[Rfam]
RNA sequence: GGGAGAUGAUGAGUGGUAACAUCUCGCUAAUUAAUGUUGCGAGAGGGGUGUCUGCCCCAACCAAGCCUGUUACGACAACAGGGCACUCCAAUAUUUUACCAUCUGAUCCC
Numbered sequence: 001g002g003g004a005g006a007u008g009a010u011g012a013g014u015g016g017u018a019a020c021a022u023c024u025c026g027c028u029a030a031u032u033a034a035u036g037u038u039g040c041g042a043g044a045g046g047g048g049u050g051u052c053u054g055c056c057c058c059a060a061c062c063a064a065g066c067c068u069g070u071u072a073c074g075a076c077a078a079c080a081g082g083g084c085a086c087u088c089c090a091a092u093a094u095u096u097u098a099c100c101a102u103c104u105g106a107u108c109c110c
Base pairs, nucleotide, nucleotide: 001110002109003108004107014101015100016099017098018097023043024042025041026040027039045089046088047087048086049085050084051083052082067081068080069079070078
Rfam assigns this 110-nucleotide RNA sequence from Oryza sativa to the family "Small nucleolar RNA Z279/snoR105/snoR108". About the family: This family includes the plant snoRNAs known as Z279, snoR105 and snoR108. Its family is annotated with RNA processing and nucleolus in the Gene Ontology. Rfam classes the family as a C/D-box small nucleolar RNA. Rfam's curators put it in the seed alignment. For this family Rfam cites "Experimental RNomics: identification of 140 candidates for small non-messenger RNAs in the plant Arabidopsis thaliana" (Marker et al., Curr Biol, 2002). The base pairs follow the family's consensus structure, which was predicted with PFOLD.